[Rfam]
RNA sequence: GGUUUAAAGGGUGCGUAGGUUGCAAGGGAAGUCAGGGGUGAAAAGCUGUAGCUCAACUAUGGUCUUGCCUUUGAAACUCUCUAGCUAGAGUGUACUGGAGGUACGUGGAACGUGUGGUGUAGCGGUGAAAUGCAUAGAUAUCACACAGAACUCCGAUUGCGCAGGCAGCGUACUACAUUACAACUGACACUGAAGCACGAAAGCGUGGGUAUCCAACAGGAUUAGAUACCCUGGUAGUCCACGCAGUAAACGAUGAAUACUAGAUCUAUGCGAUAUACAGUAUGGGUCUAAGCGAAAGCGAUAAGUAUUCCACCUGGGGAGUACGCCGGCAACGGUGAAACUCAAAGAGAU
Numbered sequence: 001g002g003u004u005u006a007a008a009g010g011g012u013g014c015g016u017a018g019g020u021u022g023c024a025a026g027g028g029a030a031g032u033c034a035g036g037g038g039u040g041a042a043a044a045g046c047u048g049u050a051g052c053u054c055a056a057c058u059a060u061g062g063u064c065u066u067g068c069c070u071u072u073g074a075a076a077c078u079c080u081c082u083a084g085c086u087a088g089a090g091u092g093u094a095c096u097g098g099a100g101g102u103a104c105g106u107g108g109a110a111c112g113u114g115u116g117g118u119g120u121a122g123c124g125g126u127g128a129a130a131u132g133c134a135u136a137g138a139u140a141u142c143a144c145a146c147a148g149a150a151c152u153c154c155g156a157u158u159g160c161g162c163a164g165g166c167a168g169c170g171u172a173c174u175a176c177a178u179u180a181c182a183a184c185u186g187a188c189a190c191u192g193a194a195g196c197a198c199g200a201a202a203g204c205g206u207g208g209g210u211a212u213c214c215a216a217c218a219g220g221a222u223u224a225g226a227u228a229c230c231c232u233g234g235u236a237g238u239c240c241a242c243g244c245a246g247u248a249a250a251c252g253a254u255g256a257a258u259a260c261u262a263g264a265u266c267u268a269u270g271c272g273a274u275a276u277a278c279a280g281u282a283u284g285g286g287u288c289u290a291a292g293c294g295a296a297a298g299c300g301a302u303a304a305g306u307a308u309u310c311c312a313c314c315u316g317g318g319g320a321g322u323a324c325g326c327c328g329g330c331a332a333c334g335g336u337g338a339a340a341c342u343c344a345a346a347g348a349g350a351u
Stems, first nucleotide, its partner, number of pairs: 001314003009311001011198004016192001018191003022085002025082004030078002032074009045063007089185003092181003096177002100174007107151001112146007122133003159166002203244006213237001217233004255310006263288009292299002316343003325336004